[Rfam]
RNA: TPP riboswitch aptamer (THI element)
RNA sequence: ACAGAGAGCUGGGGGGGCCUGUUGGCUGAGAAGACGGCAUGUCUGACCCUUGGAACCUGAUGUGGUUAGCACCACCGUAGGGAAGCUUUCAUCGAACAAU
Dot-bracket structure: .....(((((((((.((((....)))......((((...)))))..)))).....((((..((((......))))..))))..)))))............